The family of this 83-nucleotide RNA from Galemys pyrenaicus is "Small nucleolar RNA snR60/Z15/Z230/Z193/J17". On this family, see Lowe and Eddy, Science 1999: "A computational screen for methylation guide snoRNAs in yeast". Gene Ontology terms of the family: nucleolus and RNA processing. The match comes from Rfam's covariance-model search (63 bits). Pairs were carried over by alignment from the consensus structure.

RNA sequence: CCGAUACAAUGAUGAUUUCAUAGUUCAGCAGACUAACGGUGAUGAGCACUUUUUAAGUCUUUCGCUCCUAUCUGAUGUAUCUG
Numbered sequence: 001c002c003g004a005u006a007c008a009a010u011g012a013u014g015a016u017u018u019c020a021u022a023g024u025u026c027a028g029c030a031g032a033c034u035a036a037c038g039g040u041g042a043u044g045a046g047c048a049c050u051u052u053u054u055a056a057g058u059c060u061u062u063c064g065c066u067c068c069u070a071u072c073u074g075a076u077g078u079a080u081c082u083g
Stems, first nucleotide, its partner, number of pairs: 004080005